[Rfam]
RNA sequence: AUCCCUGACACGGGGUGCCCACGAGGGCUGAGAUGAGACCCGUCGCACCUGAUCCGGUUCGCACCGGCGGAGGGAUGUCAUCAUGAGCGCUG
Numbered sequence: 001a002u003c004c005c006u007g008a009c010a011c012g013g014g015g016u017g018c019c020c021a022c023g024a025g026g027g028c029u030g031a032g033a034u035g036a037g038a039c040c041c042g043u044c045g046c047a048c049c050u051g052a053u054c055c056g057g058u059u060c061g062c063a064c065c066g067g068c069g070g071a072g073g074g075a076u077g078u079c080a081u082c083a084u085g086a087g088c089g090c091u092g
Stems, first nucleotide, its partner, number of pairs: 006080005011042004016036001017028004048073003054067004

This 92-nucleotide RNA from Clavibacter michiganensis belongs to the Rfam family "TPP riboswitch aptamer (THI element)". The organism belongs to Clavibacter, within Bacteria. The match comes from Rfam's covariance-model search (67 bits). Pairs were carried over by alignment from the consensus structure, which is taken from published work.